RNA sequence: CUCCCCGAAAUGCAUUUAGGUGCAGCGUUAUACAAGCUUGCUGGAGGUAGAGCUACUGGUUGGUUGAGCGGGACUAUCAUCUUAGCAAUGUCAGCCAAACUCCGAAUGCCGGUUAAAAGUGGUGUAUAGCAGUGAGACUGUGGGGGAUAAGCUUCAUAGUCGAGAGGGAAACAGCCCAGAUCGCCGGUUAAGGCCCCUAAGGGUGUACUAAGUGGAAAAGGAUGUAGGAUCGCGAAGACAGCCAGGAGGUUGGCUUAGAAGCAGCCACCCUUGAAAGAGUGCGUAAUAGCUCACUGGUCGAGUGGUUCCGCGCCGACAAUUCAGUGGGGCUCAAGUACACCGCCGAAGCCGCGGCAUAGUUUUUACUAUGGGUAGGGGAGCGUCGUGUGUGGGGUGAAGCAUUACCGUAAGGGGGUGUGGACUGCACGCGAGUGAGAAU
Numbered sequence: 001c002u003c004c005c006c007g008a009a010a011u012g013c014a015u016u017u018a019g020g021u022g023c024a025g026c027g028u029u030a031u032a033c034a035a036g037c038u039u040g041c042u043g044g045a046g047g048u049a050g051a052g053c054u055a056c057u058g059g060u061u062g063g064u065u066g067a068g069c070g071g072g073a074c075u076a077u078c079a080u081c082u083u084a085g086c087a088a089u090g091u092c093a094g095c096c097a098a099a100c101u102c103c104g105a106a107u108g109c110c111g112g113u114u115a116a117a118a119g120u121g122g123u124g125u126a127u128a129g130c131a132g133u134g135a136g137a138c139u140g141u142g143g144g145g146g147a148u149a150a151g152c153u154u155c156a157u158a159g160u161c162g163a164g165a166g167g168g169a170a171a172c173a174g175c176c177c178a179g180a181u182c183g184c185c186g187g188u189u190a191a192g193g194c195c196c197c198u199a200a201g202g203g204u205g206u207a208c209u210a211a212g213u214g215g216a217a218a219a220g221g222a223u224g225u226a227g228g229a230u231c232g233c234g235a236a237g238a239c240a241g242c243c244a245g246g247a248g249g250u251u252g253g254c255u256u257a258g259a260a261g262c263a264g265c266c267a268c269c270c271u272u273g274a275a276a277g278a279g280u281g282c283g284u285a286a287u288a289g290c291u292c293a294c295u296g297g298u299c300g301a302g303u304g305g306u307u308c309c310g311c312g313c314c315g316a317c318a319a320u321u322c323a324g325u326g327g328g329g330c331u332c333a334a335g336u337a338c339a340c341c342g343c344c345g346a347a348g349c350c351g352c353g354g355c356a357u358a359g360u361u362u363u364u365a366c367u368a369u370g371g372g373u374a375g376g377g378g379a380g381c382g383u384c385g386u387g388u389g390u391g392g393g394g395u396g397a398a399g400c401a402u403u404a405c406c407g408u409a410a411g412g413g414g415g416u417g418u419g420g421a422c423u424g425c426a427c428g429c430g431a432g433u434g435a436g437a438a439u
Stems, first nucleotide, its partner, number of pairs: 001380006011024005026132001027130007035123001036120003040113005050103001051101002057097003061093004068086002070083004136161010166177003181354004186350003192344003201341001203340006220314002224311002227308007241298005247271003252266003272276001277292001281290002355370006381434001383431010399418005405412002
RNA: Bacterial large subunit ribosomal RNA, nucleotides 905 to 1343